[Rfam]
RNA sequence: CGCUUUGCGGGGUAACCCGUCGGGUGAUUAAGCAGAAGUCAGCAGACGGCAUAGUAGCCAAACGCCCAUCGUAAUGGAUGGGACACGGUGAAGGCC
Numbered sequence: 001c002g003c004u005u006u007g008c009g010g011g012g013u014a015a016c017c018c019g020u021c022g023g024g025u026g027a028u029u030a031a032g033c034a035g036a037a038g039u040c041a042g043c044a045g046a047c048g049g050c051a052u053a054g055u056a057g058c059c060a061a062a063c064g065c066c067c068a069u070c071g072u073a074a075u076g077g078a079u080g081g082g083a084c085a086c087g088g089u090g091a092a093g094g095c096c
Stems, first nucleotide, its partner, number of pairs: 001026002004023002007020005038047003048096003057089003065082003